[Rfam]
A member of the RNA family "glmS glucosamine-6-phosphate activated ribozyme aptamer" from Variimorphobacter saccharofermentans, 167 nucleotides long. It scores 75 bits against the family's covariance model. Rfam classes the family as a riboswitch. The organism belongs to Variimorphobacter, within Bacteria. Rfam links the family to the GO terms catalytic activity and regulation of gene expression. The base pairs follow the family's consensus structure, which is taken from published work. Rfam describes the family as follows. This entry contains a glucosamine-6-phosphate activated ribozyme that is found in the mRNA for GlmS. GlmS is an enzyme that uses fructose-6-phosphate and glutamine to generate glucosamine-6-phosphate.
RNA sequence: AUGUUUAAAUUAGCGCCAUGUACCUCUAUUGGGUUAAGUAAUUUAGAGGUUGACGAGGUAGAGAGUUAGCGAAGUGUUCGGCGGAUGCUCUCUCGUGCACUUGGGCAUGUUAUGUAUCGAAAAAAACUAUGGGUAACUGUAGAACAACAGCGAUACAACCAAGAAAA
Numbered sequence: 001a002u003g004u005u006u007a008a009a010u011u012a013g014c015g016c017c018a019u020g021u022a023c024c025u026c027u028a029u030u031g032g033g034u035u036a037a038g039u040a041a042u043u044u045a046g047a048g049g050u051u052g053a054c055g056a057g058g059u060a061g062a063g064a065g066u067u068a069g070c071g072a073a074g075u076g077u078u079c080g081g082c083g084g085a086u087g088c089u090c091u092c093u094c095g096u097g098c099a100c101u102u103g104g105g106c107a108u109g110u111u112a113u114g115u116a117u118c119g120a121a122a123a124a125a126a127c128u129a130u131g132g133g134u135a136a137c138u139g140u141a142g143a144a145c146a147a148c149a150g151c152g153a154u155a156c157a158a159c160c161a162a163g164a165a166a167a
Stems, first nucleotide, its partner, number of pairs: 022050007060093005070080003094109005113157007127142006